RNA sequence: GCGGAACUGUGUGCAUAGUUUUCCAUCUGUGUCUGGUGGUACGGUCUGUUUGCGUUUUGCAUUUAGACUGUACCGCUCACACAAAACCUGCGGCCAAAGAUGAACUCGAGAUCAUAGUACUGGCCUAGUGAAGUCUGACAGACAAACCUCCCACUGGUCAGCCUCCACACUCUCAGACAUCG
Numbered sequence: 001g002c003g004g005a006a007c008u009g010u011g012u013g014c015a016u017a018g019u020u021u022u023c024c025a026u027c028u029g030u031g032u033c034u035g036g037u038g039g040u041a042c043g044g045u046c047u048g049u050u051u052g053c054g055u056u057u058u059g060c061a062u063u064u065a066g067a068c069u070g071u072a073c074c075g076c077u078c079a080c081a082c083a084a085a086a087c088c089u090g091c092g093g094c095c096a097a098a099g100a101u102g103a104a105c106u107c108g109a110g111a112u113c114a115u116a117g118u119a120c121u122g123g124c125c126u127a128g129u130g131a132a133g134u135c136u137g138a139c140a141g142a143c144a145a146a147c148c149u150c151c152c153a154c155u156g157g158u159c160a161g162c163c164u165c166c167a168c169a170c171u172c173u174c175a176g177a178c179a180u181c182g
Stems, first nucleotide, its partner, number of pairs: 013091003030083003034079003037075006044068005051061003108174004120161006127155004133143003
A member of the RNA family "Small nucleolar RNA SNORA23" from Mesitornis unicolor, 182 nucleotides long. Rfam 15.1 lists 1,092 matches to the family in 632 species. The source organism's lineage runs through Eukaryota, Deuterostomia, Sauria, Archelosauria and Mesitornis. It is annotated as an H/ACA-box small nucleolar RNA.